[Rfam]
RNA sequence: UGCAGCCUCCAGGACCCCCCCUCCCGGGAGAGCCAUAGUGGUCUGCGGAACCGGUGAGUACACCGGAAUUGCCAGGACGACCGGGUCCUUUCUUGGAUAAACCCGCUCAAUGCCUGGAGAUUUGGGCGUGCCCCCGCAAGACUGCUAGCCGAGUAGUGUUGGGUCGCGAAAGGCCUUGUGGUACUGCCUGAUAGGGUGCUUGCGAGUGCCCCGGGAGGUCUCGUAGACCGUGCACCAUGAGCACGAAUC
Numbered sequence: 001u002g003c004a005g006c007c008u009c010c011a012g013g014a015c016c017c018c019c020c021c022u023c024c025c026g027g028g029a030g031a032g033c034c035a036u037a038g039u040g041g042u043c044u045g046c047g048g049a050a051c052c053g054g055u056g057a058g059u060a061c062a063c064c065g066g067a068a069u070u071g072c073c074a075g076g077a078c079g080a081c082c083g084g085g086u087c088c089u090u091u092c093u094u095g096g097a098u099a100a101a102c103c104c105g106c107u108c109a110a111u112g113c114c115u116g117g118a119g120a121u122u123u124g125g126g127c128g129u130g131c132c133c134c135c136g137c138a139a140g141a142c143u144g145c146u147a148g149c150c151g152a153g154u155a156g157u158g159u160u161g162g163g164u165c166g167c168g169a170a171a172g173g174c175c176u177u178g179u180g181g182u183a184c185u186g187c188c189u190g191a192u193a194g195g196g197u198g199c200u201u202g203c204g205a206g207u208g209c210c211c212c213g214g215g216a217g218g219u220c221u222c223g224u225a226g227a228c229c230g231u232g233c234a235c236c237a238u239g240a241g242c243a244c245g246a247a248u249c
Stems, first nucleotide, its partner, number of pairs: 020218009030150001032149002036147009045137004051066006067122003072117005079108002082105004086097003124133003152185004157180002161176005186197004198209002230244004